[Rfam]
RNA sequence: CAUGGUCAAAGAGUCGUCACUAAUCGAAGCUUGCACAAUGGGCAUGUCCUAUCUUUUUUAAGCUUUGGGUCGAAAGUCUCCCACCUGUCCGUAUGCGGAAAACGCAAUGAGAUUUAAAAAUAUUUUUAAAUUGUUUAAAUCCACUCAUUAAGAGUGCAUUCGUGCACUCUUUCUGUCCCGCGGGAUCCUGGUGGUCUCGUGGUGACUUCGGUACUGGAACUGUAUUUCUUGAGUUCUAAACCAUAGUUAUGACGAUUGCUGCGUGUUUGGCCUUGUCCAGCGCAGUAACCCAAUGGAGCUUACUAUUCUUGGCUCAU
Number, nucleotide and partner (000 for none) at each position: 001c000002a317003u316004g314005g313006u312007c311008a310009a309010a000011g308012a307013g256014u255015c254016g253017u252018c251019a000020c000021u000022a000023a000024u068025c067026g066027a065028a064029g063030c062031u000032u000033g000034c000035a000036c000037a000038a052039u051040g050041g049042g048043c000044a000045u000046g000047u000048c042049c041050u040051a039052u038053c000054u000055u000056u000057u000058u000059u000060a000061a000062g030063c029064u028065u027066u026067g025068g024069g000070u000071c000072g000073a000074a301075a300076g299077u000078c298079u297080c296081c295082c000083a000084c000085c000086u000087g000088u000089c000090c000091g000092u000093a000094u106095g105096c104097g103098g000099a000100a000101a000102a000103c097104g096105c095106a094107a000108u000109g000110a000111g000112a000113u000114u000115u000116a000117a000118a000119a000120a000121u000122a000123u000124u000125u000126u000127u000128a000129a000130a000131u000132u000133g000134u000135u000136u000137a000138a000139a000140u000141c000142c000143a000144c000145u000146c000147a000148u000149u000150a000151a000152g169153a168154g167155u166156g165157c164158a000159u000160u000161c000162g000163u000164g157165c156166a155167c154168u153169c152170u000171u218172u217173c216174u000175g000176u000177c000178c202179c201180g200181c199182g198183g197184g196185a195186u194187c193188c000189u000190g000191g000192u000193g187194g186195u185196c184197u183198c182199g181200u180201g179202g178203u000204g000205a000206c000207u000208u000209c000210g000211g000212u000213a000214c000215u000216g173217g172218a171219a000220c000221u000222g000223u000224a000225u000226u000227u000228c000229u000230u000231g000232a000233g000234u000235u000236c000237u000238a000239a000240a000241c000242c000243a000244u000245a000246g000247u000248u000249a000250u000251g018252a017253c016254g015255a014256u013257u000258g000259c285260u284261g283262c282263g281264u280265g000266u000267u000268u000269g000270g000271c000272c000273u000274u000275g000276u000277c000278c000279a000280g264281c263282g262283c261284a260285g259286u000287a000288a000289c000290c000291c000292a000293a000294u000295g081296g080297a079298g078299c076300u075301u074302a000303c000304u000305a000306u000307u012308c011309u009310u008311g007312g006313c005314u004315c000316a003317u002